A member of the RNA family "Small nucleolar RNA SNORD58" from Nothoprocta perdicaria, 67 nucleotides long. For this family Rfam cites "Purified box C/D snoRNPs are able to reproduce site-specific 2'-O-methylation of target RNA in vitro" (Galardi et al., Mol Cell Biol, 2002).
[Rfam]
RNA sequence: UGGCAGUGAUGACUAUCUUAGGACACCUUUGGAAUCACUAUGAAAUAAAAACUUCAUUCUGAGUCAU
Numbered sequence: 001u002g003g004c005a006g007u008g009a010u011g012a013c014u015a016u017c018u019u020a021g022g023a024c025a026c027c028u029u030u031g032g033a034a035u036c037a038c039u040a041u042g043a044a045a046u047a048a049a050a051a052c053u054u055c056a057u058u059c060u061g062a063g064u065c066a067u
Base pairs, nucleotide, nucleotide: 001066002065003064004063
It scores 72 bits against the family's covariance model. The base pairs follow the family's consensus structure, which was predicted with PFOLD. snoRNA U58 is found in introns 1, 3 and 6 of the ribosomal protein RPL17 gene in humans. Lineage of the source: Eukaryota > Dipnotetrapodomorpha > Aves > Tinamidae > Nothoprocta. Rfam 15.1 lists 2,484 matches to the family in 680 species. The family's RNA type in Rfam is C/D-box small nucleolar RNA. Its family is annotated with nucleolus and RNA processing in the Gene Ontology.